Background: The family of this 47-nucleotide RNA sequence from a Phycisphaerales bacterium is "Acido-Lenti-1 RNA". Rfam classes the family as a small RNA. The family has 87 seed sequences and 2,607 matches in Rfam 15.1. A search with the family's covariance model found it, with a score of 42 bits.
RNA sequence: CCGUGGGCUCACGCCCACGGCUAGCGCUAUGCCGCGGCUACGCCGCU
Numbered sequence: 001c002c003g004u005g006g007g008c009u010c011a012c013g014c015c016c017a018c019g020g021c022u023a024g025c026g027c028u029a030u031g032c033c034g035c036g037g038c039u040a041c042g043c044c045g046c047u
Base pairs, nucleotide, nucleotide: 001020002019003018004017005016006015007014008013034046035045036044037043038042